[Rfam]
RNA sequence: AGCGGUCCCGGUGGCGUGAGGCCUCGGUCCGCUCACGUGUCCUGGUGCACCUUCCCCGGCACCAGAACACCCCGAGCGGACUGGGACCUGAGGUCACCAGGAGCGGUGGAU
Numbered sequence: 001a002g003c004g005g006u007c008c009c010g011g012u013g014g015c016g017u018g019a020g021g022c023c024u025c026g027g028u029c030c031g032c033u034c035a036c037g038u039g040u041c042c043u044g045g046u047g048c049a050c051c052u053u054c055c056c057c058g059g060c061a062c063c064a065g066a067a068c069a070c071c072c073c074g075a076g077c078g079g080a081c082u083g084g085g086a087c088c089u090g091a092g093g094u095c096a097c098c099a100g101g102a103g104c105g106g107u108g109g110a111u
Base pairs, nucleotide, nucleotide: 010098011097012096013095014094015093020088021087023085024084025083026082027081028080029079030078031077032076033075034074037070038069039068040067042065043064044063045062046061047060048059
Rfam assigns this 111-nucleotide RNA from Saccharopolyspora gloriosae to the family "mraW RNA".
The family has 45 seed sequences and 851 matches in Rfam 15.1.
Rfam classes the family as a cis-regulatory element.
Lineage of the source: Bacteria > Bacillati > Actinomycetes > Pseudonocardiales > Saccharopolyspora.